[Rfam]
RNA sequence: GAUGCAAUGGAAUAGAUUCCGCAGACAGCAGGUGGCAUAGCCGUAAAUCCUGCCGAGGAUGACUUUGUAUGUAUCAAUAGGCAUAUAAUGUCCCUCGCAGACCUGCGGGGGACUUUUUCGUUCGGCAA
Dot-bracket structure: ...........................(((((.(((...)))......)))))....................................((((((((((....))))))))))...............